[Rfam]
RNA sequence: UAUCAGUUUCAGGGAAGGUGCAAUUCCUUACUGGCGGUAAUGGGCGCACACACGUCGCCUUAGCCCGCGAGCCCGAAGGGUCGAUCCGGUGAGAUUCCGCGAGCCAACGGUAUAGUCCGGAUGAAAGAAACGAGUA
Numbered sequence: 001u002a003u004c005a006g007u008u009u010c011a012g013g014g015a016a017g018g019u020g021c022a023a024u025u026c027c028u029u030a031c032u033g034g035c036g037g038u039a040a041u042g043g044g045c046g047c048a049c050a051c052a053c054g055u056c057g058c059c060u061u062a063g064c065c066c067g068c069g070a071g072c073c074c075g076a077a078g079g080g081u082c083g084a085u086c087c088g089g090u091g092a093g094a095u096u097c098c099g100c101g102a103g104c105c106a107a108c109g110g111u112a113u114a115g116u117c118c119g120g121a122u123g124a125a126a127g128a129a130a131c132g133a134g135u136a
Stems, first nucleotide, its partner, number of pairs: 003134001006131005016028003030116002032106002034068004063104002071081003085102002087099003108119003